Shown here is a 31-nucleotide RNA sequence from Nyctiprogne leucopyga, a member of the family "Iron response element II". By type it is a cis-regulatory element. The family's consensus secondary structure is taken from published work. NCBI's taxonomy places the organism under Eukaryota, Chordata, Amniota, Sauropsida, Nyctiprogne.

[Rfam]
RNA sequence: UUUUAUUCUGCUACAGUGUUAGCAAAUGAAA
Number, nucleotide and partner (000 for none) at each position: 001u031002u030003u029004u028005a027006u026007u025008c000009u024010g023011c022012u021013a020014c018015a000016g000017u000018g014019u000020u013021a012022g011023c010024a009025a007026a006027u005028g004029a003030a002031a001